Overview:
This 105-nucleotide sequence from Prunus yedoensis belongs to the Rfam family "MIR6274 microRNA precursor family". The family has 2 seed sequences and 342 matches in Rfam 15.1.
[Rfam]
RNA sequence: AGAUAGCACUAUUUUGCUAUUCCCGACUAAUAAAACAAUGACACGUGAAAAAGUUAUCUUAUGUGUCAUUACUUUAUUGGCCGGGGAUAGCAAAAAGUGAUAUCC
Dot-bracket structure: .((((......(((((((((.((((.((((((((..((((((((((((.(......).))))))))))))..)))))))).)))).))))))))).....)))).